[Rfam]
RNA sequence: CCGAUACGAAAUAUUCAGCAUUCUAUUCACUGCACCAUUCAAACUAAUGAAUGAUUGGAGGGGAAAAGAAGCGCAAGAAAAAAAGUAAUGGAAUUGGUUUUUUUUUGAAAAUCAAUUUUAUUCUGGAAAUUACGUCCUCAUACUGAGACAGGAGCUUAAUUGUCUUACUCUUGUAUUGGUAUCUGCGUAUUCCGAACAUCU
Numbered sequence: 001c002c003g004a005u006a007c008g009a010a011a012u013a014u015u016c017a018g019c020a021u022u023c024u025a026u027u028c029a030c031u032g033c034a035c036c037a038u039u040c041a042a043a044c045u046a047a048u049g050a051a052u053g054a055u056u057g058g059a060g061g062g063g064a065a066a067a068g069a070a071g072c073g074c075a076a077g078a079a080a081a082a083a084a085g086u087a088a089u090g091g092a093a094u095u096g097g098u099u100u101u102u103u104u105u106u107g108a109a110a111a112u113c114a115a116u117u118u119u120a121u122u123c124u125g126g127a128a129a130u131u132a133c134g135u136c137c138u139c140a141u142a143c144u145g146a147g148a149c150a151g152g153a154g155c156u157u158a159a160u161u162g163u164c165u166u167a168c169u170c171u172u173g174u175a176u177u178g179g180u181a182u183c184u185g186c187g188u189a190u191u192c193c194g195a196a197c198a199u200c201u
Base pairs, nucleotide, nucleotide: 018074019073021070022069030060031059033057034056036053037052038051039050040049124194125193126192127191132188133187134186143179144178145177148174149173150172151171152170153169

Shown here is a 201-nucleotide RNA sequence from Hanseniaspora valbyensis, a member of the family "Small nucleolar RNA snR8". The literature on the family includes a 1988 paper in Mol Cell Biol by Parker et al., "Genetic analysis of small nuclear RNAs in Saccharomyces cerevisiae: viable sextuple mutant". It scores 100 bits against the family's covariance model. It is annotated as an H/ACA-box small nucleolar RNA.